[Rfam]
RNA sequence: AGAUCGGGAGCCAUCGGUGGGACGAUGGCAGGAAUAGAUCGAACUCCUCUGUUUCGUAAGGGUACAUCGGCCGGCGCCCACCGGCAGGAUGCA
Numbered sequence: 001a002g003a004u005c006g007g008g009a010g011c012c013a014u015c016g017g018u019g020g021g022a023c024g025a026u027g028g029c030a031g032g033a034a035u036a037g038a039u040c041g042a043a044c045u046c047c048u049c050u051g052u053u054u055c056g057u058a059a060g061g062g063u064a065c066a067u068c069g070g071c072c073g074g075c076g077c078c079c080a081c082c083g084g085c086a087g088g089a090u091g092c093a
Base pairs, nucleotide, nucleotide: 002040003039004038005037010029011028012027013026014025015024016023063093065091066090067089070085071084072083073082

Overview:
A member of the RNA family "Rhodo-rpoB RNA" from Pacificibacter marinus, 93 nucleotides long. The source organism's lineage runs through Bacteria, Pseudomonadati, Alphaproteobacteria, Rhodobacterales and Pacificibacter.